[Rfam]
RNA sequence: GGCUGGUUCAAGUGUAAUAGUGUUUACACUAAUUAAUCACAAUGAGUUACAGACUUCUUUGUUCCUUUUCCAAGCCAAACAGUUCACUUGACUAGCCUAAA
Number, nucleotide and partner (000 for none) at each position: 001g097002g096003c095004u094005g093006g092007u091008u090009c000010a089011a088012g000013u000014g085015u000016a000017a000018u078019a000020g076021u000022g075023u000024u000025u000026a000027c000028a000029c000030u000031a063032a062033u061034u000035a059036a058037u000038c000039a000040c000041a000042a000043u000044g000045a000046g000047u000048u000049a000050c000051a000052g000053a000054c000055u000056u000057c000058u036059u035060u000061g033062u032063u031064c000065c000066u000067u000068u000069u000070c000071c000072a000073a000074g000075c022076c020077a000078a018079a000080c000081a000082g000083u000084u000085c014086a000087c000088u011089u010090g008091a007092c006093u005094a004095g003096c002097c001098u000099a000100a000101a000
RNA: Y RNA
Organism: Sapajus apella